[Rfam]
RNA sequence: UAUAAUCUUCAGGGACGGGUGCAAUUCCCUACCGGCGGUAUAGCCCGCGAGCCGAAAGGCAGAUCCGGUUAGAUUCCGGAGCCGACAGUUAAAGUCUGGAUGGAAGAAGAUUUAU
Dot-bracket structure: ...(((((((......(((.......))).[[((((((....[[))))..(((....)))...(((((.......)))))]])).(((.....]]))).......)))))))...

Description
This 115-nucleotide RNA from Lutispora thermophila belongs to the Rfam family "FMN riboswitch aptamer (RFN element)". About the family: The RFN element is a highly conserved domain that is found frequently in the 5'-untranslated regions of prokaryotic mRNAs that encode for flavin mononucleotide (FMN) biosynthesis and transport proteins. This element is a metabolite-dependent riboswitch that directly binds FMN in the absence of proteins. In Bacillus subtilis, the riboswitch most likely controls gene expression by causing premature transcription termination within the 5' untranslated region of the ribDEAHT operon and precluding access to the ribosome-binding site of ypaA mRNA.The FMN riboswitch structure, reported in present an FMN-bound six-stem junction, adopts a butterfly-like scaffold, stapled together by opposingly directed but nearly identically folded peripheral domains. The organism belongs to Lutispora thermophila, within Bacteria.